RNA sequence: GGGGAUGAACUUAGAGUCCCCUGUGCGGACGUGUUAAUAGCAGCACUUUUGGCCGAGUGUUGCGGUUAGGGAAUC
Numbered sequence: 001g002g003g004g005a006u007g008a009a010c011u012u013a014g015a016g017u018c019c020c021c022u023g024u025g026c027g028g029a030c031g032u033g034u035u036a037a038u039a040g041c042a043g044c045a046c047u048u049u050u051g052g053c054c055g056a057g058u059g060u061u062g063c064g065g066u067u068a069g070g071g072a073a074u075c
Base pairs, nucleotide, nucleotide: 001021002020003019004018005017006016034069035068036067037066038065040063041062042061043060044059045058046057047056048055

About this RNA
Rfam assigns this 75-nucleotide RNA sequence from Hoylesella oralis to the family "L13-Bacteroidia ribosomal protein leader". Rfam's curators put it in the seed alignment. NCBI's taxonomy places the organism under Bacteria, Pseudomonadati, Bacteroidales, Hoylesella, Hoylesella oralis.